[Rfam]
RNA sequence: UAUAGUAUGUAGGGGAGCUGGAUAAUGGCUGGCUGAGAGUGUGUACCUAUACACAGACCCUUGAACCUGAUCCGGGUAAUGCCGGCGUAGGGACGAAGAAUGUUUGUGCGA
Numbered sequence: 001u002a003u004a005g006u007a008u009g010u011a012g013g014g015g016a017g018c019u020g021g022a023u024a025a026u027g028g029c030u031g032g033c034u035g036a037g038a039g040u041g042u043g044u045a046c047c048u049a050u051a052c053a054c055a056g057a058c059c060c061u062u063g064a065a066c067c068u069g070a071u072c073c074g075g076g077u078a079a080u081g082c083c084g085g086c087g088u089a090g091g092g093a094c095g096a097a098g099a100a101u102g103u104u105u106g107u108g109c110g111a
Stems, first nucleotide, its partner, number of pairs: 006099001008097001010095001011061004017033005040055005066091004072085004

Shown here is a 111-nucleotide RNA from Thermoflavimicrobium dichotomicum, a member of the family "TPP riboswitch aptamer (THI element)".
Lineage of the source: Bacteria > Bacilli > Caryophanales > Thermoactinomycetaceae > Thermoflavimicrobium.